[Rfam]
RNA sequence: GUACUCCCUCCGUAAACUAAUAUAAAAGCGUUUAGAUCACUAAGUGAUCUAAACGCUUUUAUAUUAGUUUACGGAGGGAGUAC
Numbered sequence: 001g002u003a004c005u006c007c008c009u010c011c012g013u014a015a016a017c018u019a020a021u022a023u024a025a026a027a028g029c030g031u032u033u034a035g036a037u038c039a040c041u042a043a044g045u046g047a048u049c050u051a052a053a054c055g056c057u058u059u060u061a062u063a064u065u066a067g068u069u070u071a072c073g074g075a076g077g078g079a080g081u082a083c
Stems, first nucleotide, its partner, number of pairs: 003081003007077005013071005019065022